Description: Shown here is a 101-nucleotide RNA from Pseudomonas indica, a member of the family "Guanidine-I riboswitch aptamer". The match comes from Rfam's covariance-model search (92 bits). Gene Ontology term of the family: regulation of gene expression.
[Rfam]
RNA sequence: GCAAUGGCCGACUAGGGUUCCGGUCCGUCGACGACGGAUGUCUGGUCCGAGAGUGGGCAACCUCGUUCGAGGUCACACGGAGGGACAAAAGCCCGGGAGAG
Numbered sequence: 001g002c003a004a005u006g007g008c009c010g011a012c013u014a015g016g017g018u019u020c021c022g023g024u025c026c027g028u029c030g031a032c033g034a035c036g037g038a039u040g041u042c043u044g045g046u047c048c049g050a051g052a053g054u055g056g057g058c059a060a061c062c063u064c065g066u067u068c069g070a071g072g073u074c075a076c077a078c079g080g081a082g083g084g085a086c087a088a089a090a091g092c093c094c095g096g097g098a099g100a101g
Base pairs, nucleotide, nucleotide: 007058008057009056011054012053015048016047020045021044022042023039024038025037026036027035028034060073061072062071063070064069076096078099082094083093084092